[Rfam]
RNA: Group I catalytic intron
Organism: Wickerhamiella sorbophila
RNA sequence: GAAAUUUCUUUUAGCUUAAGUGAAAGUGAACCUUUUGCUAUAAAUCAUCAAAUUGCGGGAAAGUCUUAAAGCUUAAUUAACUAAAUAAUAUAGUAAUAUAUUUAUGGCACAGGUAAUGACUCGUGGUAUAGUAAUAUCAAUUAAGAUGUACGAAAGGAAAUAGAUAAUCCGCAGCCAAGUACUUAUUUAUUUUAUUUUAUUUUAUUUAAGUAUGCAGUUCAUCGACUAAAAGGUGAUUGGUAUUUAUUUAUUUAUUUAUUUAUUUAAAUACUUAAGAUAUAGUCAAGCCUUACUUGAAAAAGUACA
Numbered sequence: 001g002a003a004a005u006u007u008c009u010u011u012u013a014g015c016u017u018a019a020g021u022g023a024a025a026g027u028g029a030a031c032c033u034u035u036u037g038c039u040a041u042a043a044a045u046c047a048u049c050a051a052a053u054u055g056c057g058g059g060a061a062a063g064u065c066u067u068a069a070a071g072c073u074u075a076a077u078u079a080a081c082u083a084a085a086u087a088a089u090a091u092a093g094u095a096a097u098a099u100a101u102u103u104a105u106g107g108c109a110c111a112g113g114u115a116a117u118g119a120c121u122c123g124u125g126g127u128a129u130a131g132u133a134a135u136a137u138c139a140a141u142u143a144a145g146a147u148g149u150a151c152g153a154a155a156g157g158a159a160a161u162a163g164a165u166a167a168u169c170c171g172c173a174g175c176c177a178a179g180u181a182c183u184u185a186u187u188u189a190u191u192u193u194a195u196u197u198u199a200u201u202u203u204a205u206u207u208a209a210g211u212a213u214g215c216a217g218u219u220c221a222u223c224g225a226c227u228a229a230a231a232g233g234u235g236a237u238u239g240g241u242a243u244u245u246a247u248u249u250a251u252u253u254a255u256u257u258a259u260u261u262a263u264u265u266a267a268a269u270a271c272u273u274a275a276g277a278u279a280u281a282g283u284c285a286a287g288c289c290u291u292a293c294u295u296g297a298a299a300a301a302g303u304a305c306a
Base pairs, nucleotide, nucleotide: 001012002011003010004009043238044237045236046235047234049232054173055172056171057170058169059168064164065163066162174218175217179213180212181211182210188204189203222285224284225283226282227281228280240271241270242269243268244267245266246265291304292303293302294301295300
Dot-bracket structure: ((((....))))..............................(((((.(....((((((....(((...............................................................................................)))...))))))((...((((.....((.............)).....))))...))...[.[[[[[...).))))).(((((((..................)))))))........]]]]]].....(((((....)))))..